The record is a 213-nucleotide RNA from Lupinus albus, which matches "Early nodulin 40" in Rfam. By type it is a non-coding RNA gene. The family has 35 seed sequences and 341 matches in Rfam 15.1. For this family Rfam cites "Identification of conserved secondary structures and expansion segments in enod40 RNAs reveals new enod40 homologues in plants" (Gultyaev and Roussis, Nucleic Acids Res, 2007).

RNA sequence: AUGGAGCUUAAUGGCAUAUAAAAGAAGCAUAGAAGGGACAGUGUUAAAGGGUCCUCACCCUUCACACUACUCCUUUCAUAUGGAAAAGUUUUCUGUAUAACAGAAGAAAGGAAGAAGAGAAGCUAGCAAUGUUCAAAGGAGUAGAAGAGGCUUUUGGCUACAGCUUGGCAAACCGGCAAGUCAGAAAAAGGCAAUGGAUUCCAUUAGGAUCCA
Numbered sequence: 001a002u003g004g005a006g007c008u009u010a011a012u013g014g015c016a017u018a019u020a021a022a023a024g025a026a027g028c029a030u031a032g033a034a035g036g037g038a039c040a041g042u043g044u045u046a047a048a049g050g051g052u053c054c055u056c057a058c059c060c061u062u063c064a065c066a067c068u069a070c071u072c073c074u075u076u077c078a079u080a081u082g083g084a085a086a087a088g089u090u091u092u093c094u095g096u097a098u099a100a101c102a103g104a105a106g107a108a109a110g111g112a113a114g115a116a117g118a119g120a121a122g123c124u125a126g127c128a129a130u131g132u133u134c135a136a137a138g139g140a141g142u143a144g145a146a147g148a149g150g151c152u153u154u155u156g157g158c159u160a161c162a163g164c165u166u167g168g169c170a171a172a173c174c175g176g177c178a179a180g181u182c183a184g185a186a187a188a189a190g191g192c193a194a195u196g197g198a199u200u201c202c203a204u205u206a207g208g209a210u211c212c213a
Base pairs, nucleotide, nucleotide: 043072088173089172090171091170093168101163103161197211198210199209200208201207
Dot-bracket structure: ..........................................(............................)...............((((.(.......(.(.........................................................).)....).)))).......................(((((.....)))))..